[Rfam]
RNA: Bacterial large subunit ribosomal RNA, nucleotides 2026 to 2612
Organism: Chitinibacter fontanus
RNA sequence: CCCGCUGCUAGACGGAAAGACCCCGUGAACCUUUACUGUAGCUUUGCAUUGGACUUUGAAGUGGUUUGUGUAGGAUAGGUGGGAGGCUUUGAAGCAGGAACGCCAGUUUCUGUGGAGCCGUCCUUGAAAUACCACCCUGACCCCUUUGAGGUUCUAACCUAGGUCCAUUAUCUGGAUCGGGGACCGUGCAUGGUAGGCAGUUUGACUGGGGCGGUCUCCUCCCAAAUUGUAACGGAGGAGCUCGAAGGUCGCCUAGGUACGGUCGGACAUCGUACUGAUAGUGUAAUGGCAAAAGGCGGCUUAACUGCGAGACCGACAAGUCGAGCAGGUGCGAAAGCAGGACAUAGUGAUCCGGUGGUUCUGAAUGGAAGGGCCAUCGCUCAACGGAUAAAAGGUACUCCGGGGAUAACAGGCUGAUUCCGCCCAAGAGUUCACAUCGACGGCGGAGUUUGGCACCUCGAUGUCGGCUCAUCACAUCCUGGGGCUGUAGCCGGUCCCAAGGGUAUGGCUGUUCGCCAUUUAAAGUGGUACGUGAGCUGGGUUCAAAACGUCGUGAGACAGUUUGGUCCCUAUCUGCAGUGGGCGUU
Numbered sequence: 001c002c003c004g005c006u007g008c009u010a011g012a013c014g015g016a017a018a019g020a021c022c023c024c025g026u027g028a029a030c031c032u033u034u035a036c037u038g039u040a041g042c043u044u045u046g047c048a049u050u051g052g053a054c055u056u057u058g059a060a061g062u063g064g065u066u067u068g069u070g071u072a073g074g075a076u077a078g079g080u081g082g083g084a085g086g087c088u089u090u091g092a093a094g095c096a097g098g099a100a101c102g103c104c105a106g107u108u109u110c111u112g113u114g115g116a117g118c119c120g121u122c123c124u125u126g127a128a129a130u131a132c133c134a135c136c137c138u139g140a141c142c143c144c145u146u147u148g149a150g151g152u153u154c155u156a157a158c159c160u161a162g163g164u165c166c167a168u169u170a171u172c173u174g175g176a177u178c179g180g181g182g183a184c185c186g187u188g189c190a191u192g193g194u195a196g197g198c199a200g201u202u203u204g205a206c207u208g209g210g211g212c213g214g215u216c217u218c219c220u221c222c223c224a225a226a227u228u229g230u231a232a233c234g235g236a237g238g239a240g241c242u243c244g245a246a247g248g249u250c251g252c253c254u255a256g257g258u259a260c261g262g263u264c265g266g267a268c269a270u271c272g273u274a275c276u277g278a279u280a281g282u283g284u285a286a287u288g289g290c291a292a293a294a295g296g297c298g299g300c301u302u303a304a305c306u307g308c309g310a311g312a313c314c315g316a317c318a319a320g321u322c323g324a325g326c327a328g329g330u331g332c333g334a335a336a337g338c339a340g341g342a343c344a345u346a347g348u349g350a351u352c353c354g355g356u357g358g359u360u361c362u363g364a365a366u367g368g369a370a371g372g373g374c375c376a377u378c379g380c381u382c383a384a385c386g387g388a389u390a391a392a393a394g395g396u397a398c399u400c401c402g403g404g405g406a407u408a409a410c411a412g413g414c415u416g417a418u419u420c421c422g423c424c425c426a427a428g429a430g431u432u433c434a435c436a437u438c439g440a441c442g443g444c445g446g447a448g449u450u451u452g453g454c455a456c457c458u459c460g461a462u463g464u465c466g467g468c469u470c471a472u473c474a475c476a477u478c479c480u481g482g483g484g485c486u487g488u489a490g491c492c493g494g495u496c497c498c499a500a501g502g503g504u505a506u507g508g509c510u511g512u513u514c515g516c517c518a519u520u521u522a523a524a525g526u527g528g529u530a531c532g533u534g535a536g537c538u539g540g541g542u543u544c545a546a547a548a549c550g551u552c553g554u555g556a557g558a559c560a561g562u563u564u565g566g567u568c569c570c571u572a573u574c575u576g577c578a579g580u581g582g583g584c585g586u587u
Stems, first nucleotide, its partner, number of pairs: 001583008010575003014570002022404004027400002029396005035201004042193002045190004051154011063142004068137001078136005085119003094113008158181003162178006204216004217239006240385001242342002248300006254280002257275006281290002305328004311322003330339003353379007361372002413454003417451001418448007428438002465540001466538004470532001471529005478503002481498006505519005546564004550559003